[Rfam]
RNA sequence: AAUCUAAGAAGAGGUUGCUUAAGUUAUGAGUCGUUAAGGUGAGUUCCAAUUCGGACGCUGACCCUUGAUUAAAGGAACUUAAGCCGAAAUUGUUUAAAUGAAUUGGUUUAAACAAUUGGGACUAGAUUGAACAAGUCUAGUACUGUCGCAACUUGACAGUUGCGGGGCGCUAUCGACGAU
Numbered sequence: 001a002a003u004c005u006a007a008g009a010a011g012a013g014g015u016u017g018c019u020u021a022a023g024u025u026a027u028g029a030g031u032c033g034u035u036a037a038g039g040u041g042a043g044u045u046c047c048a049a050u051u052c053g054g055a056c057g058c059u060g061a062c063c064c065u066u067g068a069u070u071a072a073a074g075g076a077a078c079u080u081a082a083g084c085c086g087a088a089a090u091u092g093u094u095u096a097a098a099u100g101a102a103u104u105g106g107u108u109u110a111a112a113c114a115a116u117u118g119g120g121a122c123u124a125g126a127u128u129g130a131a132c133a134a135g136u137c138u139a140g141u142a143c144u145g146u147c148g149c150a151a152c153u154u155g156a157c158a159g160u161u162g163c164g165g166g167g168c169g170c171u172a173u174c175g176a177c178g179a180u
Stems, first nucleotide, its partner, number of pairs: 008173001010171002017084009033069007088117012118144002121141008146165007
RNA: Lysine riboswitch aptamer